[Rfam]
RNA sequence: AAUUGAUAAAGGCAAAUCAUUGGAAACAAUGAGACGCAAAGCCAUGGCCUAACACAUACAUUUUUGUAUGAUAUGGUUGACAGGUUACCGAG
Numbered sequence: 001a002a003u004u005g006a007u008a009a010a011g012g013c014a015a016a017u018c019a020u021u022g023g024a025a026a027c028a029a030u031g032a033g034a035c036g037c038a039a040a041g042c043c044a045u046g047g048c049c050u051a052a053c054a055c056a057u058a059c060a061u062u063u064u065u066g067u068a069u070g071a072u073a074u075g076g077u078u079g080a081c082a083g084g085u086u087a088c089c090g091a092g
Stems, first nucleotide, its partner, number of pairs: 012037002017032006040086004045082002047077003055070006
Notes: Shown here is a 92-nucleotide RNA from Paenibacillus silvestris, a member of the family "c-di-GMP-I riboswitch aptamer". Rfam describes the family as follows. GEMM was predicted in a large-scale screen for bacterial structured RNA regulatory elements. Rfam links the family to the GO term cyclic-di-GMP binding. Taxonomically the source falls in Paenibacillus (Bacteria, Bacillati, Bacilli, Caryophanales).